[Rfam]
Nucleotides: 098
Base pairs, nucleotide, nucleotide: 010025011024012023013022016089017088018087019086020085021084060079061078062077063076064075065074066073
Number, partner (000 for none) and nucleotide at each position: 001000u002000g003000g004000u005000g006000g007000c008000a009000g010025g011024g012023c013022a014000a015000u016089g017088g018087a019086g020085c021084c022013u023012g024011c025010c026000c027000g028000u029000g030000a031000g032000c033000g034000g035000c036000g037000u038000a039000a040000c041000u042000u043000u044000u045000g046000c047000g048000c049000c050000g051000c052000u053000c054000c055000a056000a057000a058000c059000c060079g061078c062077g063076c064075c065074g066073c067000c068000a069000u070000u071000u072000u073066g074065c075064g076063g077062c078061g079060c080000u081000g082000a083000u084021g085020g086019c087018u088017c089016c090000u091000g092000c093000a094000u095000c096000c097000g098000a